[Rfam]
Background
The record is a 140-nucleotide RNA sequence from Tachuris rubrigastra, which matches "Small nucleolar RNA SNORA12" in Rfam. About the family: U108 belongs to the H/ACA family of snoRNAs. The sequence is predicted to guide the pseudouridylation of the U372 residue in the 28S rRNA subunit. However it has not been reported as a pseudouridylation site. The family has 23 seed sequences and 571 matches in Rfam 15.1. The family's RNA type in Rfam is H/ACA-box small nucleolar RNA. Taxonomically the source falls in Tachuris (Eukaryota, Sarcopterygii, Sauria, Dinosauria). The match comes from Rfam's covariance-model search (49 bits). On this family, see Gu et al., Nucleic Acids Res 2005: "A novel experimental approach for systematic identification of box H/ACA snoRNAs from eukaryotes".
RNA sequence: UAUUGUGGUGGUUUCUGUGUGUGGCAGAUCUGUGAGUGUAUCAGAACUGUACCAGAACUACCACAGAGAUCAGAAAGGAGAAGGCAGCGCUGAGAACUUCAAGCUUUCAGUUUUCAGCAGUUUGUUCAGCUCCUACAGAA
Numbered sequence: 001u002a003u004u005g006u007g008g009u010g011g012u013u014u015c016u017g018u019g020u021g022u023g024g025c026a027g028a029u030c031u032g033u034g035a036g037u038g039u040a041u042c043a044g045a046a047c048u049g050u051a052c053c054a055g056a057a058c059u060a061c062c063a064c065a066g067a068g069a070u071c072a073g074a075a076a077g078g079a080g081a082a083g084g085c086a087g088c089g090c091u092g093a094g095a096a097c098u099u100c101a102a103g104c105u106u107u108c109a110g111u112u113u114u115c116a117g118c119a120g121u122u123u124g125u126u127c128a129g130c131u132c133c134u135a136c137a138g139a140a
Base pairs, nucleotide, nucleotide: 005064006063007062008061009060010059011058023052024050025049027047029045030044031043032042077133078132079131080130100124101123102122103121